The family of this 81-nucleotide RNA sequence from Catenibacillus scindens is "ZMP/ZTP riboswitch aptamer (pfl RNA motif)". A search with the family's covariance model found it, with a score of 48 bits.
RNA sequence: UAGAAGCUGUACGACUGGCGGAAGCAGGGAACUGCAAGGGAGUAUAGCAGGAAAAGAGUGUCGACCGCCUGGGCCAAAUGA
Numbered sequence: 001u002a003g004a005a006g007c008u009g010u011a012c013g014a015c016u017g018g019c020g021g022a023a024g025c026a027g028g029g030a031a032c033u034g035c036a037a038g039g040g041a042g043u044a045u046a047g048c049a050g051g052a053a054a055a056g057a058g059u060g061u062c063g064a065c066c067g068c069c070u071g072g073g074c075c076a077a078a079u080g081a
Base pairs, nucleotide, nucleotide: 006048007047008046009045010044011043012042015039016038017069018068019067020066021065024035025034026033027032060074061073062072
Dot-bracket structure: .....(((((((..(([[[[[..((((....))))..))..)))))))...........(((..]]]]]..))).......